[Rfam]
RNA sequence: UGGAUGUGGAGAGAGCAAAGUGCCUGAAAAAUGGCUCCUCUGUGUAUAACACAUCCAACAGCAACUUGGGCUUACUCCUCACAGGUGGCAGGACACCAUGACCUUCCUGUGACAUUAUGCCCUAUAUAU
Dot-bracket structure: .(((((((....(.(((.((.(((........)))..)).))).)....)))))))............((.(...(...((.(((...((((...)).)).))).....))..)....).)).......
Numbered sequence: 001u002g003g004a005u006g007u008g009g010a011g012a013g014a015g016c017a018a019a020g021u022g023c024c025u026g027a028a029a030a031a032u033g034g035c036u037c038c039u040c041u042g043u044g045u046a047u048a049a050c051a052c053a054u055c056c057a058a059c060a061g062c063a064a065c066u067u068g069g070g071c072u073u074a075c076u077c078c079u080c081a082c083a084g085g086u087g088g089c090a091g092g093a094c095a096c097c098a099u100g101a102c103c104u105u106c107c108u109g110u111g112a113c114a115u116u117a118u119g120c121c122c123u124a125u126a127u128a129u
Stems, first nucleotide, its partner, number of pairs: 002056007013045001015043003019039002022035003069122002072119001076114001080111002083104003089100002091097002
The family of this 129-nucleotide RNA from Myotis brandtii is "Small nucleolar RNA SNORA11".
The base pairs follow the family's consensus structure, which was predicted with RNAalifold.
Taxonomically the source falls in Myotis (Eukaryota, Metazoa, Craniata, Vespertilionidae).
A search with the family's covariance model found it, with a score of 64 bits.
For this family Rfam cites "A novel experimental approach for systematic identification of box H/ACA snoRNAs from eukaryotes" (Gu et al., Nucleic Acids Res, 2005).
About the family: U107 (SNORA11) is a member of the H/ACA class of snoRNAs that guide the sites of modification of uridines to pseudouridines.
The family's RNA type in Rfam is H/ACA-box small nucleolar RNA.